[Rfam]
RNA: Protozoan signal recognition particle RNA
RNA sequence: GCAACUGGCAGGCAGAUGGUGGUGGACGGAGUGAGAGGAGGAGUCCUGCCGGGUGCUCGGCGGCGUCGACCGAGCGUCCAGGCCAAGCGCGGCGUCGAUAAGCUGUCACUGGGGGAGCCUGGAGACAGCUGGUCGUACAAUGAGUGACGCACGGCUCAGGGCCGAAAGGCAGCAGGCAAAAGUCGCCGCGUCGCGACAGUGGUCGGAUCGCGCUUGCGAGUCG
Numbered sequence: 001g002c003a004a005c006u007g008g009c010a011g012g013c014a015g016a017u018g019g020u021g022g023u024g025g026a027c028g029g030a031g032u033g034a035g036a037g038g039a040g041g042a043g044u045c046c047u048g049c050c051g052g053g054u055g056c057u058c059g060g061c062g063g064c065g066u067c068g069a070c071c072g073a074g075c076g077u078c079c080a081g082g083c084c085a086a087g088c089g090c091g092g093c094g095u096c097g098a099u100a101a102g103c104u105g106u107c108a109c110u111g112g113g114g115g116a117g118c119c120u121g122g123a124g125a126c127a128g129c130u131g132g133u134c135g136u137a138c139a140a141u142g143a144g145u146g147a148c149g150c151a152c153g154g155c156u157c158a159g160g161g162c163c164g165a166a167a168g169g170c171a172g173c174a175g176g177c178a179a180a181a182g183u184c185g186c187c188g189c190g191u192c193g194c195g196a197c198a199g200u201g202g203u204c205g206g207a208u209c210g211c212g213c214u215u216g217c218g219a220g221u222c223g
Stems, first nucleotide, its partner, number of pairs: 058223003071216007078206002081204005088195008096135004101130007109122005138142001144186005154177003161170003